[Rfam]
RNA sequence: UUCUUAUCCAGAGAGGUGGAGGGACUGGCCCGAUGAAACCCGGCAACCAACAAAUAAUUCGUUUAUUUGGAAAGGUGCCAAUUCCUGCUAGGCAUAUGCUUAGAGAAGAUAAGAG
Numbered sequence: 001u002u003c004u005u006a007u008c009c010a011g012a013g014a015g016g017u018g019g020a021g022g023g024a025c026u027g028g029c030c031c032g033a034u035g036a037a038a039c040c041c042g043g044c045a046a047c048c049a050a051c052a053a054a055u056a057a058u059u060c061g062u063u064u065a066u067u068u069g070g071a072a073a074g075g076u077g078c079c080a081a082u083u084c085c086u087g088c089u090a091g092g093c094a095u096a097u098g099c100u101u102a103g104a105g106a107a108g109a110u111a112a113g114a115g
Stems, first nucleotide, its partner, number of pairs: 001115008013041001015040003021031003025087001027085002042079004047075002051069006083107001088103006
The record is a 115-nucleotide RNA sequence from Aquibacillus koreensis, which matches "SAM riboswitch aptamer (S box leader)" in Rfam. Rfam's curators write: The SAM riboswitch is found upstream of a number of genes which code for proteins involved in methionine or cysteine biosynthesis in Gram-positive bacteria. Taxonomically the source falls in Aquibacillus (Bacteria, Bacillota, Bacilli, Bacillaceae).